Rfam assigns this 58-nucleotide RNA to the family "terC RNA".

[Rfam]
RNA sequence: AUCGCGGACCGGGCCCCUCUGGCGCGCUAUCCUUGGCGCGUGAUGUCGGACCGCAUCG
Numbered sequence: 001a002u003c004g005c006g007g008a009c010c011g012g013g014c015c016c017c018u019c020u021g022g023c024g025c026g027c028u029a030u031c032c033u034u035g036g037c038g039c040g041u042g043a044u045g046u047c048g049g050a051c052c053g054c055a056u057c058g
Base pairs, nucleotide, nucleotide: 006052007051009049010048011047012046022041023040024039025038026037027036028035029034